[Rfam]
RNA: pemK RNA
Organism: Streptococcus suis
RNA sequence: UUAAUGAUACUUCUGUACGUUCAGGCUCUAGUCGAAAAAUGGAGCAGGUGAGAUUCCUAUGU
Numbered sequence: 001u002u003a004a005u006g007a008u009a010c011u012u013c014u015g016u017a018c019g020u021u022c023a024g025g026c027u028c029u030a031g032u033c034g035a036a037a038a039a040u041g042g043a044g045c046a047g048g049u050g051a052g053a054u055u056c057c058u059a060u061g062u
Stems, first nucleotide, its partner, number of pairs: 012059001013024003026044003030040001032038001046058003